[Rfam]
RNA sequence: UUGGCCAUCCUCUUACGGUUCAUUAGCUCUGCACUUUGAUGAUAUGUGCUAGUUAAUACAAAAGGUGAAGCCUAUAAAUUUUGUUCCCCUCGCUAUCCAAUGCGGUUAUUUUAGUGUUGUACUUGGACGUUGGGGAGCUAUAUUA
Numbered sequence: 001u002u003g004g005c006c007a008u009c010c011u012c013u014u015a016c017g018g019u020u021c022a023u024u025a026g027c028u029c030u031g032c033a034c035u036u037u038g039a040u041g042a043u044a045u046g047u048g049c050u051a052g053u054u055a056a057u058a059c060a061a062a063a064g065g066u067g068a069a070g071c072c073u074a075u076a077a078a079u080u081u082u083g084u085u086c087c088c089c090u091c092g093c094u095a096u097c098c099a100a101u102g103c104g105g106u107u108a109u110u111u112u113a114g115u116g117u118u119g120u121a122c123u124u125g126g127a128c129g130u131u132g133g134g135g136a137g138c139u140a141u142a143u144u145a
Stems, first nucleotide, its partner, number of pairs: 002074001003072003006067004011062001014060001017057001024055004030048001033047002083138007091129002096127005105117002
A member of the RNA family "Small nucleolar RNA snoR136" from Tripterygium wilfordii, 145 nucleotides long. NCBI's taxonomy places the organism under Eukaryota, Embryophyta, Gunneridae, Celastrales, Tripterygium. The literature on the family includes a 2009 paper in Nucleic Acids Res by Chen and Wu, "Mining small RNA sequencing data: a new approach to identify small nucleolar RNAs in Arabidopsis".